[Rfam]
RNA sequence: AUAGUUCUUCAGGGAGAGGUGAAAUUCCUUACCGGCGGUAAAGCCCGCGAACCUUAAUUGGUAGAUCCGGUUAGUUUCCGGAGCCGACAGUAUAGUCUGGAUGGGAGAAGAACAUG
Numbered sequence: 001a002u003a004g005u006u007c008u009u010c011a012g013g014g015a016g017a018g019g020u021g022a023a024a025u026u027c028c029u030u031a032c033c034g035g036c037g038g039u040a041a042a043g044c045c046c047g048c049g050a051a052c053c054u055u056a057a058u059u060g061g062u063a064g065a066u067c068c069g070g071u072u073a074g075u076u077u078c079c080g081g082a083g084c085c086g087a088c089a090g091u092a093u094a095g096u097c098u099g100g101a102u103g104g105g106a107g108a109a110g111a112a113c114a115u116g
Stems, first nucleotide, its partner, number of pairs: 004113007017029003031096002033086002035048004043084002051062003066082005088099003
Shown here is a 116-nucleotide RNA from Herbinix luporum, a member of the family "FMN riboswitch aptamer (RFN element)". Rfam 15.1 lists 6,230 matches to the family in 5,120 species.